[Rfam]
Annotation:
mir-19 microRNA precursor family: an 85-nucleotide RNA from Oryzias latipes. The family is grouped with related families in Rfam's "mir-19 clan". Taxonomically the source falls in Oryzias (Eukaryota, Actinopteri, Euacanthomorphacea, Atherinomorphae). Gene Ontology terms of the family: RISC complex and miRNA-mediated post-transcriptional gene silencing.
RNA sequence: GGUCCUGGCCAGCUUUGCAGGGUGGGCAGUCAGCCUGUGCAUGCCUGGAGCAGCUGUGCAAACCCAUGCAAAACUGACUAUGGCC
Numbered sequence: 001g002g003u004c005c006u007g008g009c010c011a012g013c014u015u016u017g018c019a020g021g022g023u024g025g026g027c028a029g030u031c032a033g034c035c036u037g038u039g040c041a042u043g044c045c046u047g048g049a050g051c052a053g054c055u056g057u058g059c060a061a062a063c064c065c066a067u068g069c070a071a072a073a074c075u076g077a078c079u080a081u082g083g084c085c
Stems, first nucleotide, its partner, number of pairs: 003083002006080003010076003014072006020065002023061001026059003032055003